Notes: A member of the RNA family "SAM riboswitch aptamer (S box leader)" from Acetohalobium arabaticum, 85 nucleotides long. Taxonomically the source falls in Acetohalobium arabaticum (Bacteria, Halanaerobiales, Halobacteroidaceae, Acetohalobium). The base pairs follow the family's consensus structure, which is taken from published work.
RNA sequence: ACUGCAUCAAGAGCGGCGGAGGGACAGGCCCGAUGAAGCCCGGCAACCAGCAACCUGCAUGGUGCUAAUUCCUAGGAGAUGUGGU
Numbered sequence: 001a002c003u004g005c006a007u008c009a010a011g012a013g014c015g016g017c018g019g020a021g022g023g024a025c026a027g028g029c030c031c032g033a034u035g036a037a038g039c040c041c042g043g044c045a046a047c048c049a050g051c052a053a054c055c056u057g058c059a060u061g062g063u064g065c066u067a068a069u070u071c072c073u074a075g076g077a078g079a080u081g082u083g084g085u
Base pairs, nucleotide, nucleotide: 001085002084003083004082005081006080007079008078013041015040016039017038021031022030023029026073027072028071042066043065044064045063047062048061050058051057052056070077